[Rfam]
RNA: TUC338
Organism: Microcebus murinus
RNA sequence: UAGACGGCCAAGAGACUGAAGUCCUCCAUUUUUUCACAGAACAGGUAGAACAUGGACAACAGCAAUUCAAGUUUUCCCCACACUGCCCUGCCAAUGUGCCUCGAUCCUGACCUGGGGGGGCCACCUCUGGGGUGAGAGGGUGGCUCAUUCAUUCAGUCCUUGGCCAUUCUUCUGAAACAGCCAAC
Numbered sequence: 001u002a003g004a005c006g007g008c009c010a011a012g013a014g015a016c017u018g019a020a021g022u023c024c025u026c027c028a029u030u031u032u033u034u035c036a037c038a039g040a041a042c043a044g045g046u047a048g049a050a051c052a053u054g055g056a057c058a059a060c061a062g063c064a065a066u067u068c069a070a071g072u073u074u075u076c077c078c079c080a081c082a083c084u085g086c087c088c089u090g091c092c093a094a095u096g097u098g099c100c101u102c103g104a105u106c107c108u109g110a111c112c113u114g115g116g117g118g119g120g121c122c123a124c125c126u127c128u129g130g131g132g133u134g135a136g137a138g139g140g141u142g143g144c145u146c147a148u149u150c151a152u153u154c155a156g157u158c159c160u161u162g163g164c165c166a167u168u169c170u171u172c173u174g175a176a177a178c179a180g181c182c183a184a185c
Base pairs, nucleotide, nucleotide: 002170003169004168007164008163011160012159014158015157016156017155018154019153020152023143024142026140027139029138030137031136032135033134034132037109038108039107041105047101051098052097053096054095062086063085064084112130113129114128115127116126117125118124